[Rfam]
RNA sequence: AAGAGUGAGAUCUUUCUGGCACAUUUGUUAAGUUUCUGCCCGAGUCUGCCACAUAUUUUGGAGCUGGCAAAGGCUUGAAAACAAAGAGAUCUCUCUUAAGCCUUUCCUGCAUCAAAGAUUGGCUCCCACAGCA
Numbered sequence: 001a002a003g004a005g006u007g008a009g010a011u012c013u014u015u016c017u018g019g020c021a022c023a024u025u026u027g028u029u030a031a032g033u034u035u036c037u038g039c040c041c042g043a044g045u046c047u048g049c050c051a052c053a054u055a056u057u058u059u060g061g062a063g064c065u066g067g068c069a070a071a072g073g074c075u076u077g078a079a080a081a082c083a084a085a086g087a088g089a090u091c092u093c094u095c096u097u098a099a100g101c102c103u104u105u106c107c108u109g110c111a112u113c114a115a116a117g118a119u120u121g122g123c124u125c126c127c128a129c130a131g132c133a
Base pairs, nucleotide, nucleotide: 005052006051007050008047009046018040019039020038027036060126061125062124063123064122065121066075067074068073092118093117094116096114
Rfam assigns this 133-nucleotide sequence from Microcebus murinus to the family "Small nucleolar RNA SNORA12". Lineage of the source: Eukaryota > Chordata > Craniata > Mammalia > Microcebus.